[Rfam]
RNA sequence: AAUGAUACUUCCAGUGAUGGCCCGCAUAAGUGACGGGAAAAUGCACACCCACGUUUGAGAAAGAAUGUGGGCGGCUUUU
Numbered sequence: 001a002a003u004g005a006u007a008c009u010u011c012c013a014g015u016g017a018u019g020g021c022c023c024g025c026a027u028a029a030g031u032g033a034c035g036g037g038a039a040a041a042u043g044c045a046c047a048c049c050c051a052c053g054u055u056u057g058a059g060a061a062a063g064a065a066u067g068u069g070g071g072c073g074g075c076u077u078u079u
Base pairs, nucleotide, nucleotide: 011020012019013018021037022036023035024034025032038079039078040077041076043075044074048071051068052067053066054065055064

This 79-nucleotide RNA belongs to the Rfam family "dinG RNA". It is one of the family's seed sequences. By type it is a small RNA. The base pairs follow the family's consensus structure, which is taken from published work.